[Rfam]
RNA sequence: AUAACCUCAUCUUGCUGGCCGCCAUCCGAGCGUCUGAGCAGUGUUUUCUCGAGAGGGGACACAGGCGCUCCGCCUGGAUGAGGAGAAAGG
Numbered sequence: 001a002u003a004a005c006c007u008c009a010u011c012u013u014g015c016u017g018g019c020c021g022c023c024a025u026c027c028g029a030g031c032g033u034c035u036g037a038g039c040a041g042u043g044u045u046u047u048c049u050c051g052a053g054a055g056g057g058g059a060c061a062c063a064g065g066c067g068c069u070c071c072g073c074c075u076g077g078a079u080g081a082g083g084a085g086a087a088a089g090g
Base pairs, nucleotide, nucleotide: 005083006082007081008080009079010078011077012076015038016037020032021031022030041062042061043060044059045058046057047056048055049054063075064074065073066072
Rfam assigns this 90-nucleotide RNA to the family "RAGATH-10 RNA". The family's RNA type in Rfam is small RNA. On this family, see Weinberg et al., Nat Chem Biol 2015: "New classes of self-cleaving ribozymes revealed by comparative genomics analysis".